A member of the RNA family "S15-Methanomicrobia ribosomal protein leader", 76 nucleotides long. Clan: Ribosomal Protein S15 Leader clan.
RNA sequence: CGCACAUUAUGUGCUGGCUAAGGUAAGUCCGACGUGCUUCUUCAGCACUGCUCCUUUUGGGGGGGCUUGGGAUUAC
Dot-bracket structure: .(((((...)))))........((((..((...(((((.....))))).(((((((...)))))))...)).))))